Overview:
Mycobacterium sRNA Ms_AS-1: a 98-nucleotide RNA sequence from Mycolicibacterium chitae.

RNA sequence: GUGGGAUUCGGGAUGAAGUGGUUGACCACGCCGCCGAAGACCGCCAGGGUGCGCUUGCCGUCCUGCACCAUUUGCACGCCGCGGCUGCGAAAUUCCUU
Numbered sequence: 001g002u003g004g005g006a007u008u009c010g011g012g013a014u015g016a017a018g019u020g021g022u023u024g025a026c027c028a029c030g031c032c033g034c035c036g037a038a039g040a041c042c043g044c045c046a047g048g049g050u051g052c053g054c055u056u057g058c059c060g061u062c063c064u065g066c067a068c069c070a071u072u073u074g075c076a077c078g079c080c081g082c083g084g085c086u087g088c089g090a091a092a093u094u095c096c097u098u
Stems, first nucleotide, its partner, number of pairs: 007038005014033002018029004043054002080089003

Annotation: NCBI's taxonomy places the organism under Bacteria, Actinomycetes, Mycobacteriales, Mycobacteriaceae, Mycobacterium (subgen. Mycolicibacterium). Pairs were carried over by alignment from the consensus structure.